[Rfam]
RNA sequence: CCCUAAAGAUCGCUGAAUCCGAAUAGGAGCGGGGGAACCAACCGUGGCUUUGUGCGCCACAUGGGGUGAAUCCUGUUCAGGACGCCUGUUCUGAACGGGUAGGGUGACUCUCAUCACCCGAAUCCGUCAGCUAACCUCGUAAGCGUGUUGAGAGAAGGG
Numbered sequence: 001c002c003c004u005a006a007a008g009a010u011c012g013c014u015g016a017a018u019c020c021g022a023a024u025a026g027g028a029g030c031g032g033g034g035g036a037a038c039c040a041a042c043c044g045u046g047g048c049u050u051u052g053u054g055c056g057c058c059a060c061a062u063g064g065g066g067u068g069a070a071u072c073c074u075g076u077u078c079a080g081g082a083c084g085c086c087u088g089u090u091c092u093g094a095a096c097g098g099g100u101a102g103g104g105u106g107a108c109u110c111u112c113a114u115c116a117c118c119c120g121a122a123u124c125c126g127u128c129a130g131c132u133a134a135c136c137u138c139g140u141a142a143g144c145g146u147g148u149u150g151a152g153a154g155a156a157g158g159g
Stems, first nucleotide, its partner, number of pairs: 011145004018028003029140006039063002064125003072099010102119004
RNA: c-di-AMP riboswitch aptamer (ydaO/yuaA leader)